Rfam assigns this 172-nucleotide RNA sequence from Castor canadensis to the family "Small Cajal body specific RNA 16". The family has 37 seed sequences and 790 matches in Rfam 15.1. It is annotated as a small Cajal body RNA. Pairs were carried over by alignment from the consensus structure, which was predicted with RNAfold. Rfam's curators write: scaRNAs are a specific class of small nuclear RNAs which localise to the Cajal bodies and guide the modification of RNA polymerase II transcribed spliceosomal RNAs U1, U2, U4, U5 and U12. ACA47 belongs to the H/ACA box class of guide RNAs as it has the predicted hairpin-hinge-hairpin-tail structure, the conserved H/ACA-box motifs and is found associated with GAR1. ACA47 is predicted to guide the pseudouridylation of residue U5 of the U1 spliceosomal snRNA.
RNA sequence: AUGAUCUGGGAAAAGGGCUCCUGUGCUGUUAAAUUUGCCCAGUGGUUGGUACAAGCCUUUUACCAGCCAGCCCAACCUUGACCUAAAGUCUUUCUUGGGAUUUGAAUCUGCAAUAACAGGAGCAGGCAUUCUAGCAGAACUUUGAUGAUCAUGUAUGAUAAGGCAAACAGGA
Numbered sequence: 001a002u003g004a005u006c007u008g009g010g011a012a013a014a015g016g017g018c019u020c021c022u023g024u025g026c027u028g029u030u031a032a033a034u035u036u037g038c039c040c041a042g043u044g045g046u047u048g049g050u051a052c053a054a055g056c057c058u059u060u061u062a063c064c065a066g067c068c069a070g071c072c073c074a075a076c077c078u079u080g081a082c083c084u085a086a087a088g089u090c091u092u093u094c095u096u097g098g099g100a101u102u103u104g105a106a107u108c109u110g111c112a113a114u115a116a117c118a119g120g121a122g123c124a125g126g127c128a129u130u131c132u133a134g135c136a137g138a139a140c141u142u143u144g145a146u147g148a149u150c151a152u153g154u155a156u157g158a159u160a161a162g163g164c165a166a167a168c169a170g171g172a
Base pairs, nucleotide, nucleotide: 003083005081006080008078009077010076016072017071018070019069021066022065023064025063028056029055030054033050034049035048090099091098092097107167109165110164111163114160115159117157118156125149127147128146129145130144133142134141